[Rfam]
RNA sequence: CCGUCCUGCUCGUGAUCGUCUUCUCACCCUUCACCGGCAGGCGGAAAGAAGAGGCCCCCGCGAGUGGCGGCUCCUCCCAGAGGCUCUGGGGGGGGGACUGACCCGCGGGGGUCCCUU
Numbered sequence: 001c002c003g004u005c006c007u008g009c010u011c012g013u014g015a016u017c018g019u020c021u022u023c024u025c026a027c028c029c030u031u032c033a034c035c036g037g038c039a040g041g042c043g044g045a046a047a048g049a050a051g052a053g054g055c056c057c058c059c060g061c062g063a064g065u066g067g068c069g070g071c072u073c074c075u076c077c078c079a080g081a082g083g084c085u086c087u088g089g090g091g092g093g094g095g096g097a098c099u100g101a102c103c104c105g106c107g108g109g110g111g112u113c114c115c116u117u
Stems, first nucleotide, its partner, number of pairs: 001044003005041006012034004018028001049117003053113010064102001
Dot-bracket structure: (((.((((((.((((..(.........)..)))).)))))))))....(((.((((((((((.(.....................................).)))))))))).)))